[Rfam]
RNA sequence: GUGCGCACCAAGGGGAGCCCCGGCAACGGGCUGAGAAACCGCUGGCAUCUGCAGCGCGGUGACCCUUCGAACCUGAUCCGGAUCAUGCCGGCGAAGGGAUGGGAUCUAGCGCCUGC
Number, nucleotide and partner (000 for none) at each position: 001g000002u000003g000004c000005g000006c000007a000008c102009c101010a100011a066012g065013g064014g063015g000016a000017g031018c030019c029020c028021c000022g000023g000024c000025a000026a000027c000028g020029g019030g018031c017032u000033g000034a000035g000036a000037a000038a060039c059040c058041g057042c056043u000044g000045g000046c000047a000048u000049c000050u000051g000052c000053a000054g000055c000056g042057c041058g040059g039060u038061g000062a000063c014064c013065c012066u011067u000068c000069g000070a000071a000072c097073c096074u095075g000076a000077u000078c091079c090080g089081g088082a000083u000084c000085a000086u000087g000088c081089c080090g079091g078092c000093g000094a000095a074096g073097g072098g000099a000100u010101g009102g008103g000104a000105u000106c000107u000108a000109g000110c000111g000112c000113c000114u000115g000116c000

A member of the RNA family "TPP riboswitch aptamer (THI element)" from Pseudomonas sp. 1239, 116 nucleotides long. NCBI's taxonomy places the organism under Bacteria, Pseudomonadati, Pseudomonadota, Gammaproteobacteria, Pseudomonas. About the family: Vitamin B(1) in its active form thiamin pyrophosphate (TPP) is an essential coenzyme that is synthesised by coupling of pyrimidine and thiazole moieties in bacteria.